RNA sequence: UGCACUCAGUACUGUACGUCGCUCUGGAUAAGAGUGUCUGCUAAAUGACUAAAU
Numbered sequence: 001u002g003c004a005c006u007c008a009g010u011a012c013u014g015u016a017c018g019u020c021g022c023u024c025u026g027g028a029u030a031a032g033a034g035u036g037u038c039u040g041c042u043a044a045a046u047g048a049c050u051a052a053a054u
Stems, first nucleotide, its partner, number of pairs: 013043001014041003020036006
Rfam assigns this 54-nucleotide RNA sequence from Coregonus sp. 'balchen' to the family "UnaL2 LINE 3' element". The organism belongs to Coregonus, within Eukaryota. The eel long interspersed element (LINE) UnaL2 and its partner short interspersed element (SINE) share a conserved 3' tail containing a stem-loop that is critical for their retrotransposition. The base pairs follow the family's consensus structure, which is taken from published work.